Shown here is a 59-nucleotide RNA from Bifidobacterium commune, a member of the family "msiK RNA".
[Rfam]
RNA sequence: UGCAAAACCCCUUCACAGCGGAUCGUUCGGCACGUACCUGCCGAUGAAAGGACUAAUUU
Numbered sequence: 001u002g003c004a005a006a007a008c009c010c011c012u013u014c015a016c017a018g019c020g021g022a023u024c025g026u027u028c029g030g031c032a033c034g035u036a037c038c039u040g041c042c043g044a045u046g047a048a049a050g051g052a053c054u055a056a057u058u059u
Stems, first nucleotide, its partner, number of pairs: 009051002012048004027044006
By type it is a cis-regulatory element. The match comes from Rfam's covariance-model search (60 bits).